The record is a 62-nucleotide RNA from Balaenoptera musculus, which matches "Selenocysteine insertion sequence 1" in Rfam. Rfam classes the family as a cis-regulatory element. For this family Rfam cites "A novel RNA structural motif in the selenocysteine insertion element of eukaryotic selenoprotein mRNAs" (Walczak et al., RNA, 1996). Gene Ontology term of the family: selenocysteine incorporation. A search with the family's covariance model found it, with a score of 35 bits.
RNA sequence: GCCAGAUGAUGACGACUUGCGCAGAAACCCCCCGCGGGCUGCCCACGUCUGAGUCCACUGGC
Numbered sequence: 001g002c003c004a005g006a007u008g009a010u011g012a013c014g015a016c017u018u019g020c021g022c023a024g025a026a027a028c029c030c031c032c033c034g035c036g037g038g039c040u041g042c043c044c045a046c047g048u049c050u051g052a053g054u055c056c057a058c059u060g061g062c
Base pairs, nucleotide, nucleotide: 001062002061003060004059005058014049015048016047018045019044021042022041023040029038030037031036